[Rfam]
RNA sequence: GGAAGUGCGCGGCUCACUGGUGGGGCCCUCGGACUUCAAAUCCGAUGUGGGGCGCUAGAACCGUCCCGGGUGGGUUCGAUUCCCAUGCACUUCC
Numbered sequence: 001g002g003a004a005g006u007g008c009g010c011g012g013c014u015c016a017c018u019g020g021u022g023g024g025g026c027c028c029u030c031g032g033a034c035u036u037c038a039a040a041u042c043c044g045a046u047g048u049g050g051g052g053c054g055c056u057a058g059a060a061c062c063g064u065c066c067c068g069g070g071u072g073g074g075u076u077c078g079a080u081u082c083c084c085a086u087g088c089a090c091u092u093c094c
Stems, first nucleotide, its partner, number of pairs: 001094009012027001014025002017022001029045005048068005071085004
This 94-nucleotide RNA sequence from Desulfobacula toluolica belongs to the Rfam family "Selenocysteine transfer RNA".
The match comes from Rfam's covariance-model search (76 bits).
The family's consensus secondary structure is taken from published work.
The family has 109 seed sequences and 4,211 matches in Rfam 15.1.